[Rfam]
Shown here is a 166-nucleotide sequence from Turnix velox, a member of the family "Small Cajal body specific RNA 1". scaRNAs are a specific class of small nuclear RNAs which localise to the Cajal bodies and guide the modification of RNA polymerase II transcribed spliceosomal RNAs U1, U2, U4, U5 and U12. ACA35 belong to the H/ACA box class of guide RNAs as it has the predicted hairpin-hinge-hairpin-tail structure, conserved H/ACA-box motifs and is found associated with GAR1. It is predicted to guide pseudouridylation of the U2 spliceosomal snRNA at residue U89. Rfam links the family to the GO terms Cajal body, RNA processing and nucleolus. It scores 120 bits against the family's covariance model. Pairs were carried over by alignment from the consensus structure, which was predicted with RNAalifold. The family has 29 seed sequences and 715 matches in Rfam 15.1.
RNA sequence: GAGCACUUGAUACUAACCAAGCCAUCCGUGACCCAGGCCUCCCACAGAGGUCUGAGGUGCACCUUGUGAUUGCUGGGUCCCAAAAGUGCAAUAUUAAAAUAAGCCAUGUAGUGUUUAAGCUCAGUGUCUGAAGGAUAACACUGGGUUAUAGCUCAGAGGCACAGAA
Numbered sequence: 001g002a003g004c005a006c007u008u009g010a011u012a013c014u015a016a017c018c019a020a021g022c023c024a025u026c027c028g029u030g031a032c033c034c035a036g037g038c039c040u041c042c043c044a045c046a047g048a049g050g051u052c053u054g055a056g057g058u059g060c061a062c063c064u065u066g067u068g069a070u071u072g073c074u075g076g077g078u079c080c081c082a083a084a085a086g087u088g089c090a091a092u093a094u095u096a097a098a099a100u101a102a103g104c105c106a107u108g109u110a111g112u113g114u115u116u117a118a119g120c121u122c123a124g125u126g127u128c129u130g131a132a133g134g135a136u137a138a139c140a141c142u143g144g145g146u147u148a149u150a151g152c153u154c155a156g157a158g159g160c161a162c163a164g165a166a
Stems, first nucleotide, its partner, number of pairs: 003089006016078003020074003024070003028062003032057002034054001036052006103160003124139002129134001141156006